[Rfam]
Rfam assigns this 62-nucleotide RNA sequence from Stutzerimonas stutzeri to the family "Pseudomonas sRNA P36". It scores 55 bits against the family's covariance model. Pairs were carried over by alignment from the consensus structure, which was predicted with RNAalifold. A reference for the family is Livny et al. (2006), "Identification of 17 Pseudomonas aeruginosa sRNAs and prediction of sRNA-encoding genes in 10 diverse pathogens using the bioinformatic tool sRNAPredict2", Nucleic Acids Res.
RNA sequence: CAGGUUGUUACCCACCCCACCGACACGUAACAGAAACCGGGUUCAUCGGUAACGGGAACCCG
Dot-bracket structure: ....(((((((...............)))))))....(((((((.(((....))))))))))